[Rfam]
RNA sequence: UGUGACACCCAUCAAAGGAGUAGUCACCCAUCCAUGAGCUACUUUACCAUAUUAUGAAUUC
Numbered sequence: 001u002g003u004g005a006c007a008c009c010c011a012u013c014a015a016a017g018g019a020g021u022a023g024u025c026a027c028c029c030a031u032c033c034a035u036g037a038g039c040u041a042c043u044u045u046a047c048c049a050u051a052u053u054a055u056g057a058a059u060u061c
Stems, first nucleotide, its partner, number of pairs: 017045008
A member of the RNA family "Plastid-psbN 5UTR RNA" from Eucalyptus grandis, 61 nucleotides long. By type it is a cis-regulatory element. The family has 63 seed sequences and 2,345 matches in Rfam 15.1. About the family: Plastid psbN is a non-coding RNA (ncRNA) recognised in plastids. The base pairs follow the family's consensus structure, which was predicted with LocARNA. The literature on the family includes a 2023 paper in Plant Commun by Richter et al., "Retrograde signaling in plants: A critical review focusing on the GUN pathway and beyond".